[Rfam]
RNA: Small nucleolar RNA SNORD22
Organism: Eudromia elegans
RNA sequence: CCCCGAUGAGGAAAACCACAUGCGUCUUACCGGCCGUUCGGCACCGGAACCUGCAAAGGUUGAACCCACCGGUGCCGGCGGCCGGAGAGGAGGACGGCGCGUUCCGUGGGAACGGUCUGAGGGGC
Numbered sequence: 001c002c003c004c005g006a007u008g009a010g011g012a013a014a015a016c017c018a019c020a021u022g023c024g025u026c027u028u029a030c031c032g033g034c035c036g037u038u039c040g041g042c043a044c045c046g047g048a049a050c051c052u053g054c055a056a057a058g059g060u061u062g063a064a065c066c067c068a069c070c071g072g073u074g075c076c077g078g079c080g081g082c083c084g085g086a087g088a089g090g091a092g093g094a095c096g097g098c099g100c101g102u103u104c105c106g107u108g109g110g111a112a113c114g115g116u117c118u119g120a121g122g123g124g125c
Stems, first nucleotide, its partner, number of pairs: 001124004